[Rfam]
RNA sequence: GUUCGCAUCUUACCGGGCAGCAUUAGAGUCAAAUAGAUAUUUCUAAUACUGUCAGGUAAAGAUGUCGUC
Numbered sequence: 001g002u003u004c005g006c007a008u009c010u011u012a013c014c015g016g017g018c019a020g021c022a023u024u025a026g027a028g029u030c031a032a033a034u035a036g037a038u039a040u041u042u043c044u045a046a047u048a049c050u051g052u053c054a055g056g057u058a059a060a061g062a063u064g065u066c067g068u069c
Stems, first nucleotide, its partner, number of pairs: 003067001005065005010059005016053005022047006
RNA: mir-8/mir-141/mir-200 microRNA precursor family